[Rfam]
The record is a 58-nucleotide RNA from Glacieibacterium frigidum, which matches "terC RNA" in Rfam. It scores 61 bits against the family's covariance model. Pairs were carried over by alignment from the consensus structure, which is taken from published work. It is annotated as a cis-regulatory element. The organism belongs to Glacieibacterium, within Bacteria.
RNA sequence: UAUGCGGACCGGGCCCCUCUGGCGCGUCCUGACGGGCGCGCGAUGUCGGACCGCUUUU
Numbered sequence: 001u002a003u004g005c006g007g008a009c010c011g012g013g014c015c016c017c018u019c020u021g022g023c024g025c026g027u028c029c030u031g032a033c034g035g036g037c038g039c040g041c042g043a044u045g046u047c048g049g050a051c052c053g054c055u056u057u058u
Base pairs, nucleotide, nucleotide: 006052007051009049010048011047012046022041023040024039025038026037027036028035029034